RNA sequence: AAAAUUAUAUGGCUCAAUCUCAUGUCAUGAGAACGGAGGAACCAAUCUUUUGGGGUUAAUUCUGCCUAGCAGAAGGGAUGAUAGACUCUUUCGCCAUCCUACCCGUCAGCUAACUUCGUCGGCUAAAGCGAAGGAGGUC
Numbered sequence: 001a002a003a004a005u006u007a008u009a010u011g012g013c014u015c016a017a018u019c020u021c022a023u024g025u026c027a028u029g030a031g032a033a034c035g036g037a038g039g040a041a042c043c044a045a046u047c048u049u050u051u052g053g054g055g056u057u058a059a060u061u062c063u064g065c066c067u068a069g070c071a072g073a074a075g076g077g078a079u080g081a082u083a084g085a086c087u088c089u090u091u092c093g094c095c096a097u098c099c100u101a102c103c104c105g106u107c108a109g110c111u112a113a114c115u116u117c118g119u120c121g122g123c124u125a126a127a128g129c130g131a132a133g134g135a136g137g138u139c
Stems, first nucleotide, its partner, number of pairs: 011124004018032003033119006043052002053104003061073004076099004
c-di-AMP riboswitch aptamer (ydaO/yuaA leader): a 139-nucleotide sequence from Lysinibacillus odysseyi. The pairing is the family consensus, mapped onto this sequence. From the family's description: This family represents a conserved RNA structure found upstream of the ydaO and yuaA genes in Bacillus subtilis and related genes in other bacteria.